About this RNA:
This 87-nucleotide sequence from Aquisphaera giovannonii belongs to the Rfam family "Selenocysteine transfer RNA". The organism belongs to Aquisphaera, within Bacteria. Pairs were carried over by alignment from the consensus structure, which is taken from published work. A search with the family's covariance model found it, with a score of 47 bits.

[Rfam]
RNA sequence: CGGAGCGUAAACCUGUCGGGCGACAGGCGCGGUUUGCUAAACCGUCGGGCGGUAUGUACCGCUGUGGAUCGAGACCACUGCUCUCCG
Numbered sequence: 001c002g003g004a005g006c007g008u009a010a011a012c013c014u015g016u017c018g019g020g021c022g023a024c025a026g027g028c029g030c031g032g033u034u035u036g037c038u039a040a041a042c043c044g045u046c047g048g049g050c051g052g053u054a055u056g057u058a059c060c061g062c063u064g065u066g067g068a069u070c071g072a073g074a075c076c077a078c079u080g081c082u083c084u085c086c087g
Stems, first nucleotide, its partner, number of pairs: 001087005007081003012027006028047001029045005049062005064078004